Small nucleolar RNA SNORD60: an 81-nucleotide sequence from Danionella cerebrum.
It scores 62 bits against the family's covariance model.
It is annotated as a C/D-box small nucleolar RNA.
The base pairs follow the family's consensus structure, which was predicted with PFOLD.
NCBI's taxonomy places the organism under Eukaryota, Actinopteri, Otomorpha, Danionidae, Danionella.
Rfam 15.1 lists 825 matches to the family in 373 species.
On this family, see Galardi et al., Mol Cell Biol 2002: "Purified box C/D snoRNPs are able to reproduce site-specific 2'-O-methylation of target RNA in vitro".
Its family is annotated with RNA processing and nucleolus in the Gene Ontology.
RNA sequence: AGCCGCUGAUGACUUAUUAUUUUCUGACACCUCUUAUGAAUGCUGUUUCAGCAGCUGAUUCUACUUUUUUGUCUGAGGCUC
Number, nucleotide and partner (000 for none) at each position: 001a080002g079003c078004c077005g000006c000007u000008g000009a000010u000011g000012a000013c000014u000015u000016a000017u000018u000019a000020u000021u000022u000023u000024c000025u000026g000027a000028c000029a000030c000031c000032u000033c000034u000035u000036a000037u000038g000039a000040a000041u000042g055043c054044u053045g052046u051047u000048u000049c000050a000051g046052c045053a044054g043055c042056u000057g000058a000059u000060u000061c000062u000063a000064c000065u000066u000067u000068u000069u000070u000071g000072u000073c000074u000075g000076a000077g004078g003079c002080u001081c000